[Rfam]
Nucleotides: 114
Base pairs, nucleotide, nucleotide: 005110006109007108008107009106010105017029018028019027031094032093033084034083035048036047037046038045043082044081051060052059053058064080065079066078067077068076086097087096088095
Number, partner (000 for none) and nucleotide at each position: 001000g002000u003000a004000a005110u006109u007108c008107u009106u010105c011000a012000g013000g014000g015000c016000a017029g018028g019027g020000u021000g022000a023000g024000a025000u026000u027019c028018c029017c030000g031094a032093c033084c034083g035048g036047c037046g038045g039000u040000a041000a042000a043082g044081u045038c046037c047036g048035c049000g050000a051060g052059c053058c054000g055000u056000a057000a058053g059052g060051c061000u062000g063000a064080a065079u066078c067077g068076g069000u070000g071000a072000g073000a074000u075000u076068c077067c078066g079065a080064u081044a082043c083034c084033g085000a086097c087096a088095g089000u090000a091000g092000a093032g094031u095088c096087u097086g098000g099000a100000u101000g102000a103000g104000a105010g106009a107008a108007g109006a110005a111000a112000a113000a114000c
The family of this 114-nucleotide sequence from Anaerosacchariphilus hominis is "FMN riboswitch aptamer (RFN element)". The family's consensus secondary structure is taken from published work. The literature on the family includes a 2002 paper in Proc Natl Acad Sci U S A by Winkler et al., "An mRNA structure that controls gene expression by binding FMN". A search with the family's covariance model found it, with a score of 118 bits. NCBI's taxonomy places the organism under Bacteria, Bacillota, Clostridia, Lachnospirales, Anaerosacchariphilus. Rfam links the family to the GO term FMN binding.